Shown here is a 106-nucleotide RNA sequence from Anolis carolinensis, a member of the family "mir-2968 microRNA precursor family".
The base pairs follow the family's consensus structure, which is taken from published work.
Its family is annotated with RISC complex and miRNA-mediated post-transcriptional gene silencing in the Gene Ontology.
RNA sequence: GCUGCCCCCGGCGCUGCCUUCCUCCAGGUCGCUCUGGCAGCCCUCGUCGUUGAGCGAACUCUGCUUGGCCACCUUGGGCGAGAGCAGCUUGGCGAGCUCGGGCAGU
Numbered sequence: 001g002c003u004g005c006c007c008c009c010g011g012c013g014c015u016g017c018c019u020u021c022c023u024c025c026a027g028g029u030c031g032c033u034c035u036g037g038c039a040g041c042c043c044u045c046g047u048c049g050u051u052g053a054g055c056g057a058a059c060u061c062u063g064c065u066u067g068g069c070c071a072c073c074u075u076g077g078g079c080g081a082g083a084g085c086a087g088c089u090u091g092g093c094g095a096g097c098u099c100g101g102g103c104a105g106u
Stems, first nucleotide, its partner, number of pairs: 001106004007096001009094001011090001013088005020081002022078003026074004031069003036065005044057004